[Rfam]
RNA sequence: CCACAUAGUAUGGUACCCAGUCUGUCCCAGACACUUCACCCGGUGCUGUUAGGUUGGAAUUAAAGUGGUUU
Numbered sequence: 001c002c003a004c005a006u007a008g009u010a011u012g013g014u015a016c017c018c019a020g021u022c023u024g025u026c027c028c029a030g031a032c033a034c035u036u037c038a039c040c041c042g043g044u045g046c047u048g049u050u051a052g053g054u055u056g057g058a059a060u061u062a063a064a065g066u067g068g069u070u071u
Base pairs, nucleotide, nucleotide: 005049006048007047008046009045017043018042020032021031022030023029024028
The family of this 71-nucleotide RNA sequence from Tupaia belangeri is "U1A polyadenylation inhibition element (PIE)". It is annotated as a cis-regulatory element. This family represents the U1A polyadenylation inhibition element (PIE). PIE is a regulatory RNA which is responsible for the regulation of the length of the polyA tail of the U1A pre-mRNA. The PIE is located in the U1A mRNA 3' UTR. PIE adopts a U-shaped structure, with binding sites for a single U1A protein at each bend and when complexed with the two proteins it blocks activity of poly(A) polymerase (PAP), and inhibits its activity. Pairs were carried over by alignment from the consensus structure, which is taken from published work. Rfam links the family to the GO term regulation of mRNA polyadenylation.